[Rfam]
RNA sequence: UCCUUCUCAAUGAGCUCCUUCCUGUCUUACUGCCAUGGCAGAUGAUGGAUUCGCACGAGAAGAAAAGUUAAAACACAAUUGUAGCUUGUUCAUUUCACCUGGUCUACUGAGGGAGUGAACAGCACAUUGUGUGACAGUC
Numbered sequence: 001u002c003c004u005u006c007u008c009a010a011u012g013a014g015c016u017c018c019u020u021c022c023u024g025u026c027u028u029a030c031u032g033c034c035a036u037g038g039c040a041g042a043u044g045a046u047g048g049a050u051u052c053g054c055a056c057g058a059g060a061a062g063a064a065a066a067g068u069u070a071a072a073a074c075a076c077a078a079u080u081g082u083a084g085c086u087u088g089u090u091c092a093u094u095u096c097a098c099c100u101g102g103u104c105u106a107c108u109g110a111g112g113g114a115g116u117g118a119a120c121a122g123c124a125c126a127u128u129g130u131g132u133g134a135c136a137g138u139c
Base pairs, nucleotide, nucleotide: 003062004061005060006059007058008057014054015053016049017048018047022041023040024039025038026037073132074131075130076129077128078127096112099109101107